RNA sequence: UCGACACUCUGGAAAGCGGAUGGGCGCCCCCGGGACACCGGACGGGACGGUCAUCCCACCGAAGGGGUAAGCCGGAUCGCCUCAGAUCCGGCGAAAGCUCUCAGGUUCCGUGACAGAGGGGGCAAU
Number, nucleotide and partner (000 for none) at each position: 001u000002c000003g000004a000005c120006a000007c118008u117009c116010u115011g114012g000013a000014a000015a000016g000017c000018g056019g055020a054021u053022g052023g051024g000025c000026g000027c000028c000029c000030c000031c000032g000033g000034g000035a000036c000037a000038c000039c000040g000041g000042a000043c000044g000045g000046g000047a000048c000049g000050g000051u023052c022053a021054u020055c019056c018057c000058a106059c105060c104061g102062a101063a000064g000065g100066g099067g098068u000069a000070a000071g092072c091073c090074g089075g088076a087077u086078c085079g000080c000081c000082u000083c000084a000085g078086a077087u076088c075089c074090g073091g072092c071093g000094a000095a000096a000097g000098c067099u066100c065101u062102c061103a000104g060105g059106u058107u000108c000109c000110g000111u000112g000113a000114c011115a010116g009117a008118g007119g000120g005121g000122g000123c000124a000125a000126u000

Glycine riboswitch aptamer: a 126-nucleotide RNA from Sphingomonas sp. Root720. It scores 40 bits against the family's covariance model. Gene Ontology term of the family: glycine biosynthetic process. NCBI's taxonomy places the organism under Bacteria, Pseudomonadati, Pseudomonadota, Sphingomonadales, Sphingomonas.